[Rfam]
RNA sequence: AGCCCCCUGGUGCUUACCACAGGCUGUGUUCUUACAUGGACUGUACAGAAAGAGGAAGCAGAGUAAACCCACCAAAAACAUCUCAGCCCAGGCCCGUUGCCUGGUCUGUACUGUGAGUGGGGGGACACGG
Numbered sequence: 001a002g003c004c005c006c007c008u009g010g011u012g013c014u015u016a017c018c019a020c021a022g023g024c025u026g027u028g029u030u031c032u033u034a035c036a037u038g039g040a041c042u043g044u045a046c047a048g049a050a051a052g053a054g055g056a057a058g059c060a061g062a063g064u065a066a067a068c069c070c071a072c073c074a075a076a077a078a079c080a081u082c083u084c085a086g087c088c089c090a091g092g093c094c095c096g097u098u099g100c101c102u103g104g105u106c107u108g109u110a111c112u113g114u115g116a117g118u119g120g121g122g123g124g125a126c127a128c129g130g
Stems, first nucleotide, its partner, number of pairs: 002059002006055003020043003026037004072122001073119002084108003088104006
RNA: Small nucleolar RNA SNORA51